[Rfam]
Nucleotides: 120
Base pairs, nucleotide, nucleotide: 001035002034003033004032009028010027011026013024014023015022042083043082044081045080046079047078048077049076050075051074060072061071062070085104086103087102088101089100090099091098092097105120106119107118108117109116110115
Number, partner (000 for none) and nucleotide at each position: 001035g002034a003033c004032c005000u006000a007000a008000a009028c010027c011026a012000c013024u014023g015022a016000c017000u018000u019000c020000g021000g022015u023014c024013g025000c026011u027010g028009g029000c030000a031000u032004g033003g034002u035001c036000g037000a038000a039000a040000a041000u042083c043082g044081c045080g046079a047078u048077g049076a050075a051074c052000a053000u054000a055000a056000a057000a058000a059000c060072c061071c062070c063000g064000u065000c066000a067000u068000u069000a070062g071061g072060g073000c074051g075050u076049u077048c078047a079046u080045c081044g082043c083042g084000u085104u086103g087102c088101g089100u090099c091098g092097g093000g094000a095000a096000a097092c098091u099090g100089a101088c102087g103086u104085a105120g106119a107118g108117g109116u110115c111000u112000u113000c114000g115110g116109a117108c118107c119106u120105u